About this RNA:
Rfam assigns this 83-nucleotide RNA sequence from Marchantia polymorpha to the family "Small nucleolar RNA Z102/R77".

[Rfam]
RNA sequence: UAGUGAGGUGAUGAACAUUGUUUCCCUAUUGGUUUGAUUUGCCGCUAUGAUGGCUUUUAUUGCUUCAAACUUUAUGAUUACUA
Numbered sequence: 001u002a003g004u005g006a007g008g009u010g011a012u013g014a015a016c017a018u019u020g021u022u023u024c025c026c027u028a029u030u031g032g033u034u035u036g037a038u039u040u041g042c043c044g045c046u047a048u049g050a051u052g053g054c055u056u057u058u059a060u061u062g063c064u065u066c067a068a069a070c071u072u073u074a075u076g077a078u079u080a081c082u083a
Stems, first nucleotide, its partner, number of pairs: 002082004036057001041054003
By type it is a C/D-box small nucleolar RNA. The base pairs follow the family's consensus structure, which was predicted with PFOLD. The literature on the family includes a 2001 paper in J Mol Biol by Barneche et al., "Identification of 66 box C/D snoRNAs in Arabidopsis thaliana: extensive gene duplications generated multiple isoforms predicting new ribosomal RNA 2'-O-methylation sites". Its family is annotated with RNA processing and nucleolus in the Gene Ontology. It scores 58 bits against the family's covariance model.